[Rfam]
RNA sequence: GUGAAGUCCCAGAUGCGCUCUUCGACCAGGCCCCACUGGUCGAAGUACUCGCCGUCGGCGAGGACGUCCACCACGGGCUCGUCGUCGUACUCGCCCGCGGCGUGCUUCUCGACCUUGCCGUGCGCGAUGAUCAGGAACCGGUCCUCGGCGUGGCCCCACUCGACCAGCGUGUCGCCCGGGGCGUACUCCUCCUGGGUGAACAGCCCGGCGAUCGUGGCGAAAGUGUCCUCGUCAUCGUCGAAGUCGCGCAGGAACGUCAGUUCCCGCAGGUCGCCGGGAACAACGCGGGCGUGUGCGUUCGUGCGGUCCACGGUGAUGCGGCCGUCGCCGACGAGGUAGGUGCGGCGCUGGUUGACCCGGUACGUGCCGCCGCCGACGUGGGUCCAGGGCAGGACGCGCAGCAGCCAGCGGGAGGUGAUCUCCUGCAUCUGCGGGACGGAUUUGGUCGUGGUGGCCAGAUUCCGUGCCGCCGCGGUCCCCAGGCUCUGCUGUGGCGCGG
Numbered sequence: 001g002u003g004a005a006g007u008c009c010c011a012g013a014u015g016c017g018c019u020c021u022u023c024g025a026c027c028a029g030g031c032c033c034c035a036c037u038g039g040u041c042g043a044a045g046u047a048c049u050c051g052c053c054g055u056c057g058g059c060g061a062g063g064a065c066g067u068c069c070a071c072c073a074c075g076g077g078c079u080c081g082u083c084g085u086c087g088u089a090c091u092c093g094c095c096c097g098c099g100g101c102g103u104g105c106u107u108c109u110c111g112a113c114c115u116u117g118c119c120g121u122g123c124g125c126g127a128u129g130a131u132c133a134g135g136a137a138c139c140g141g142u143c144c145u146c147g148g149c150g151u152g153g154c155c156c157c158a159c160u161c162g163a164c165c166a167g168c169g170u171g172u173c174g175c176c177c178g179g180g181g182c183g184u185a186c187u188c189c190u191c192c193u194g195g196g197u198g199a200a201c202a203g204c205c206c207g208g209c210g211a212u213c214g215u216g217g218c219g220a221a222a223g224u225g226u227c228c229u230c231g232u233c234a235u236c237g238u239c240g241a242a243g244u245c246g247c248g249c250a251g252g253a254a255c256g257u258c259a260g261u262u263c264c265c266g267c268a269g270g271u272c273g274c275c276g277g278g279a280a281c282a283a284c285g286c287g288g289g290c291g292u293g294u295g296c297g298u299u300c301g302u303g304c305g306g307u308c309c310a311c312g313g314u315g316a317u318g319c320g321g322c323c324g325u326c327g328c329c330g331a332c333g334a335g336g337u338a339g340g341u342g343c344g345g346c347g348c349u350g351g352u353u354g355a356c357c358c359g360g361u362a363c364g365u366g367c368c369g370c371c372g373c374c375g376a377c378g379u380g381g382g383u384c385c386a387g388g389g390c391a392g393g394a395c396g397c398g399c400a401g402c403a404g405c406c407a408g409c410g411g412g413a414g415g416u417g418a419u420c421u422c423c424u425g426c427a428u429c430u431g432c433g434g435g436a437c438g439g440a441u442u443u444g445g446u447c448g449u450g451g452u453g454g455c456c457a458g459a460u461u462c463c464g465u466g467c468c469g470c471c472g473c474g475g476u477c478c479c480c481a482g483g484c485u486c487u488g489c490u491g492u493g494g495c496g497c498g499g
Stems, first nucleotide, its partner, number of pairs: 006384001008382004014376001015374001017322002021318001022316003026312001029309001035307004041301002043292001045224002049220007056102002059099001066094001068093001070091001073088004113208002117204002120201002122197002125194002129190001134187002141182001144180005150175002153168001225290004231284002237281002244276001246274003250271001256263001323336001325334002345373003349369003355365002385425005391419001394416002397412001399410001401409001431470004436465005441459006471498002475495002478493001480491003
RNA: Saccharopolyspora sRNA 350
Organism: Actinokineospora iranica